[Rfam]
RNA: Small nucleolar RNA SNORA17
RNA sequence: CAUGCCCCAUGUGUUGCAAGUGUGACUUUGGUGUCACAUUUGUGUCAUUCGGUGGCAGAGAGGAAAAGGCUCUGUCUUUGCUGGUGCUCCCAGACCUGUGGGUGCCCAGGGAUGAUCCACAGCCUGACAAA
Dot-bracket structure: ..((((((..((...((((.((((((......)))))).)))))).....)).)))).........(((((.(....(((.(...((.(((........))).).)..)...)))...).)))))......
Numbered sequence: 001c002a003u004g005c006c007c008c009a010u011g012u013g014u015u016g017c018a019a020g021u022g023u024g025a026c027u028u029u030g031g032u033g034u035c036a037c038a039u040u041u042g043u044g045u046c047a048u049u050c051g052g053u054g055g056c057a058g059a060g061a062g063g064a065a066a067a068g069g070c071u072c073u074g075u076c077u078u079u080g081c082u083g084g085u086g087c088u089c090c091c092a093g094a095c096c097u098g099u100g101g102g103u104g105c106c107c108a109g110g111g112a113u114g115a116u117c118c119a120c121a122g123c124c125u126g127a128c129a130a131a
Stems, first nucleotide, its partner, number of pairs: 003057004007052002011045002016043004021038006067125005073119001078115003082109001086106001087104001089102003